Shown here is a 209-nucleotide sequence from Staphylococcus warneri, a member of the family "Listeria sRNA rli60".
[Rfam]
RNA sequence: AGUUUAUAAAUUUUAAAACAAUUCAAACUAUUUAGAAUAAAUAACCAUUCAACGAAAGGAGUAUAAUAAAAUGAGACAUUAUACAACUCAACAUUCAACGACAACUUCAAAUAUUAUUAUUUUAUUAUACUCUCAAGGGCUCGAACUUUAGUAAUUAUUUCAUUUACUAAAUGUUUAAGUCCUAUUUGUAAUUGAAUGGGACUUAUUGA
Numbered sequence: 001a002g003u004u005u006a007u008a009a010a011u012u013u014u015a016a017a018a019c020a021a022u023u024c025a026a027a028c029u030a031u032u033u034a035g036a037a038u039a040a041a042u043a044a045c046c047a048u049u050c051a052a053c054g055a056a057a058g059g060a061g062u063a064u065a066a067u068a069a070a071a072u073g074a075g076a077c078a079u080u081a082u083a084c085a086a087c088u089c090a091a092c093a094u095u096c097a098a099c100g101a102c103a104a105c106u107u108c109a110a111a112u113a114u115u116a117u118u119a120u121u122u123u124a125u126u127a128u129a130c131u132c133u134c135a136a137g138g139g140c141u142c143g144a145a146c147u148u149u150a151g152u153a154a155u156u157a158u159u160u161c162a163u164u165u166a167c168u169a170a171a172u173g174u175u176u177a178a179g180u181c182c183u184a185u186u187u188g189u190a191a192u193u194g195a196a197u198g199g200g201a202c203u204u205a206u207u208g209a
Stems, first nucleotide, its partner, number of pairs: 024208003046198007055189001059132003064116005069107002136183005145175001146173001148170007
It is one of the family's seed sequences.